RNA sequence: AACAUAAAAGAGCAAACCAAGAGAAAUUUUGGGACGCAAAAUCAGGAAUCUAAGGGAAACUAUGAUCGACCGAUUGCAGAG
Number, nucleotide and partner (000 for none) at each position: 001a000002a000003c000004a000005u000006a000007a000008a000009a000010g000011a000012g037013c036014a000015a000016a000017c032018c031019a030020a029021g028022a027023g000024a000025a000026a000027u022028u021029u020030u019031g018032g017033g000034a000035c000036g013037c012038a000039a000040a075041a074042u073043c072044a000045g071046g070047a000048a066049u065050c064051u000052a000053a000054g000055g060056g000057a000058a000059a000060c055061u000062a000063u000064g050065a049066u048067c000068g000069a000070c046071c045072g043073a042074u041075u040076g000077c000078a000079g000080a000081g000
RNA: c-di-GMP-I riboswitch aptamer